[Rfam]
RNA: Mammalian CPEB3 ribozyme
Organism: Parnassius apollo
RNA sequence: ACGGAAUUAAAAGGGGUCAUUGUAGAAGCGUGCUCGUCGCGACCCCUGCCUGCCCUUUUUAGGGCUGCAAUUCUACA
Numbered sequence: 001a002c003g004g005a006a007u008u009a010a011a012a013g014g015g016g017u018c019a020u021u022g023u024a025g026a027a028g029c030g031u032g033c034u035c036g037u038c039g040c041g042a043c044c045c046c047u048g049c050c051u052g053c054c055c056u057u058u059u060u061a062g063g064g065c066u067g068c069a070a071u072u073c074u075a076c077a
Base pairs, nucleotide, nucleotide: 013046014045015044016043017042018041021077022076023075024074025073026072027071028040029039030038050067052065053064054063055062056061